[Rfam]
RNA sequence: GAAAGACGGGUGAGAAUCCCGUCCACCGAAUAACUAAGGUUUCCUGGGGAAGGCUCGUCCUCCCAGGGUUAGUCGGGACCUAAGGCGAGGCCGAUAGGCGUAGUCGAUGGAUAACAGGUUGAUAUUCCUGUACUUGUCACAACUGAUUGAGUGAUGGAGGGACGCAGGAGGUUGAAAGAGUCCACUGAUGGAAUAGUGAGAUCUAAGCAACGAGUUUGAAGAUGAGUAAAAUGCUUGUCUUUAUAAGAAUGAGUUGUGAUGGGGGCUUGAAAGGAAACGAGUAGAGUCUAUCUUAUCAAUCACACUGCCAAGAAAAGCUUCUAGCGAGGCUGUGACAACCCGUACCGCAAACCGACACAGGUAGUUGAGGAGAGAAUCCUAAGGUGAG
Numbered sequence: 001g002a003a004a005g006a007c008g009g010g011u012g013a014g015a016a017u018c019c020c021g022u023c024c025a026c027c028g029a030a031u032a033a034c035u036a037a038g039g040u041u042u043c044c045u046g047g048g049g050a051a052g053g054c055u056c057g058u059c060c061u062c063c064c065a066g067g068g069u070u071a072g073u074c075g076g077g078a079c080c081u082a083a084g085g086c087g088a089g090g091c092c093g094a095u096a097g098g099c100g101u102a103g104u105c106g107a108u109g110g111a112u113a114a115c116a117g118g119u120u121g122a123u124a125u126u127c128c129u130g131u132a133c134u135u136g137u138c139a140c141a142a143c144u145g146a147u148u149g150a151g152u153g154a155u156g157g158a159g160g161g162a163c164g165c166a167g168g169a170g171g172u173u174g175a176a177a178g179a180g181u182c183c184a185c186u187g188a189u190g191g192a193a194u195a196g197u198g199a200g201a202u203c204u205a206a207g208c209a210a211c212g213a214g215u216u217u218g219a220a221g222a223u224g225a226g227u228a229a230a231a232u233g234c235u236u237g238u239c240u241u242u243a244u245a246a247g248a249a250u251g252a253g254u255u256g257u258g259a260u261g262g263g264g265g266c267u268u269g270a271a272a273g274g275a276a277a278c279g280a281g282u283a284g285a286g287u288c289u290a291u292c293u294u295a296u297c298a299a300u301c302a303c304a305c306u307g308c309c310a311a312g313a314a315a316a317g318c319u320u321c322u323a324g325c326g327a328g329g330c331u332g333u334g335a336c337a338a339c340c341c342g343u344a345c346c347g348c349a350a351a352c353c354g355a356c357a358c359a360g361g362u363a364g365u366u367g368a369g370g371a372g373a374g375a376a377u378c379c380u381a382a383g384g385u386g387a388g
Base pairs, nucleotide, nucleotide: 005023006022007021008020009019010018024386025385026384027383032366033365034364035363038346039345043067044066045065046064047063048062052060053059074342075341076340077339079110080109084105085104086103088101090099091098092097114131115130116129117128118127134338135337136336137335138334139333140332141331143329144328151325152324156321157320158319159318164308165307166306167305170301171300172299176294177293178292179291180202181201182200183198184197185196203262204261207257208256209255210254214250215249216248218242219241220240221239222238223237224236226234227233264288265287266286267285268284270282352361353360368380369379370378371377
RNA: Bacterial large subunit ribosomal RNA, nucleotides 1307 to 1694
Organism: Granulicatella sp. zg-ZJ